[Rfam]
RNA sequence: UUCUUAUCAAGAGAAGCAGAGGGUUCUGGCCCUUUGAAGCUUCAGCAACCUCUGACAAUGUCAGAAAGGUGCUAAUUCCAGCCAAGAAUUAUUCUUGGGAGAUAAGAG
Numbered sequence: 001u002u003c004u005u006a007u008c009a010a011g012a013g014a015a016g017c018a019g020a021g022g023g024u025u026c027u028g029g030c031c032c033u034u035u036g037a038a039g040c041u042u043c044a045g046c047a048a049c050c051u052c053u054g055a056c057a058a059u060g061u062c063a064g065a066a067a068g069g070u071g072c073u074a075a076u077u078c079c080a081g082c083c084a085a086g087a088a089u090u091a092u093u094c095u096u097g098g099g100a101g102a103u104a105a106g107a108g
Stems, first nucleotide, its partner, number of pairs: 001108008013043005021032003026081004044073004049069002051065004077100001082098006
Background:
The family of this 108-nucleotide RNA from Virgibacillus indicus is "SAM riboswitch aptamer (S box leader)". It scores 96 bits against the family's covariance model. The source organism's lineage runs through Bacteria, Bacillati, Bacillota, Bacilli and Virgibacillus.